[Rfam]
RNA sequence: AAAUAAAAACGUAACUCCGUUCAUAUAUCCUCAAUAAUACGGUUUGAGGGUUUCUAGAAGGAACCGUUAAAUUCCUAACUAUGAAUGGGAUGCUGUUCAAG
Numbered sequence: 001a002a003a004u005a006a007a008a009a010c011g012u013a014a015c016u017c018c019g020u021u022c023a024u025a026u027a028u029c030c031u032c033a034a035u036a037a038u039a040c041g042g043u044u045u046g047a048g049g050g051u052u053u054c055u056a057g058a059a060g061g062a063a064c065c066g067u068u069a070a071a072u073u074c075c076u077a078a079c080u081a082u083g084a085a086u087g088g089g090a091u092g093c094u095g096u097u098c099a100a101g
Base pairs, nucleotide, nucleotide: 018087019086020085021084022083023082024081025080029049030048031047032046033045034044059076060075061074062073063072
Rfam assigns this 101-nucleotide RNA from Paenibacillus piri to the family "Purine riboswitch aptamer".
Pairs were carried over by alignment from the consensus structure, which is taken from published work.